Shown here is a 110-nucleotide sequence from Cohnella luojiensis, a member of the family "epsC RNA".
Rfam 15.1 lists 450 matches to the family in 334 species.
A search with the family's covariance model found it, with a score of 100 bits.
[Rfam]
RNA sequence: AGGUAAUGUCUACUAACCUUUAUCCUCGUAGGCACUCGGCUAUGUUGUGGGCUGUAAUGCCUUAGACGUGGAUCGUCAAGGGUGUAGCGUGAGGAGGGGUUAAAUGCCCU
Numbered sequence: 001a002g003g004u005a006a007u008g009u010c011u012a013c014u015a016a017c018c019u020u021u022a023u024c025c026u027c028g029u030a031g032g033c034a035c036u037c038g039g040c041u042a043u044g045u046u047g048u049g050g051g052c053u054g055u056a057a058u059g060c061c062u063u064a065g066a067c068g069u070g071g072a073u074c075g076u077c078a079a080g081g082g083u084g085u086a087g088c089g090u091g092a093g094g095a096g097g098g099g100u101u102a103a104a105u106g107c108c109c110u
Stems, first nucleotide, its partner, number of pairs: 001019004007034007035093004039088008049062004065077004096110005